[Rfam]
RNA sequence: UAUAUUUGCGCCUCAAUUUAAAUUAAAAUUGGUUACAUAAGAAUUAUUUACAAAAAUAUUGGCAUG
Numbered sequence: 001u002a003u004a005u006u007u008g009c010g011c012c013u014c015a016a017u018u019u020a021a022a023u024u025a026a027a028a029u030u031g032g033u034u035a036c037a038u039a040a041g042a043a044u045u046a047u048u049u050a051c052a053a054a055a056a057u058a059u060u061g062g063c064a065u066g
Stems, first nucleotide, its partner, number of pairs: 014031006
RNA: S15-Flavobacteria ribosomal protein leader